[Rfam]
Nucleotides: 172
Stems, first nucleotide, its partner, number of pairs: 001016002005012002028172001030170003035165001036163001040158006046151005062146006073138003077134004081129002086114004092107004
Number, partner (000 for none) and nucleotide at each position: 001016g002015a003000g004000a005012g006011g007000g008000u009000g010000a011006c012005c013000g014000a015002u016001c017000g018000u019000g020000g021000g022000a023000a024000g025000g026000a027000a028172g029000u030170g031169u032168g033000g034000a035165g036163u037000g038000a039000a040158g041157c042156c043155g044154c045153g046151a047150g048149c049148c050147g051000a052000u053000g054000a055000a056000c057000a058000a059000g060000a061000a062146c063145c064144g065143g066142a067141u068000a069000g070000a071000a072000g073138g074137c075136g076000g077134u078133g079132c080131c081129g082128a083000u084000c085000a086114g087113g088112g089111c090000g091000a092107g093106c094105a095104g096000c097000c098000a099000a100000a101000c102000a103000a104095c105094u106093g107092c108000a109000a110000a111089g112088c113087u114086c115000u116000c117000g118000u119000g120000g121000u122000c123000a124000a125000g126000g127000g128082u129081c130000a131080g132079g133078c134077g135000g136075c137074g138073u139000a140000a141067a142066u143065c144064c145063g146062g147050c148049g149048g150047u151046u152000g153045u154044g155043c156042g157041g158040u159000g160000a161000a162000g163036g164000a165035u166000u167000g168032c169031g170030u171000u172028c
The record is a 172-nucleotide RNA sequence from Paraburkholderia xenovorans, which matches "Group II catalytic intron D1-D4-3" in Rfam. Pairs were carried over by alignment from the consensus structure. Its family is annotated with Group II intron splicing in the Gene Ontology. The source organism's lineage runs through Bacteria, Pseudomonadati, Betaproteobacteria, Paraburkholderia and Paraburkholderia xenovorans. The sequence is in the family's curated seed alignment.